This 102-nucleotide RNA from Python bivittatus belongs to the Rfam family "mir-454 microRNA precursor family". Pairs were carried over by alignment from the consensus structure, which was predicted with RNAalifold. A search with the family's covariance model found it, with a score of 85 bits. The literature on the family includes a 2010 paper in Blood by Jima et al., "Deep sequencing of the small RNA transcriptome of normal and malignant human B cells identifies hundreds of novel microRNAs". The source organism's lineage runs through Eukaryota, Craniata, Vertebrata, Amniota and Python.
RNA sequence: GCGUGAGAACUCUGAGGAUAAAACCCUAUCAAUAUUGCCUCUGCUUCUUCACUCGGUCUUAGUAGUGCAAUAUUGCUAAUAGGGUCUUUUCUUUGGGGUUAC
Numbered sequence: 001g002c003g004u005g006a007g008a009a010c011u012c013u014g015a016g017g018a019u020a021a022a023a024c025c026c027u028a029u030c031a032a033u034a035u036u037g038c039c040u041c042u043g044c045u046u047c048u049u050c051a052c053u054c055g056g057u058c059u060u061a062g063u064a065g066u067g068c069a070a071u072a073u074u075g076c077u078a079a080u081a082g083g084g085u086c087u088u089u090u091c092u093u094u095g096g097g098g099u100u101a102c
Stems, first nucleotide, its partner, number of pairs: 020088002023085007030075009041065005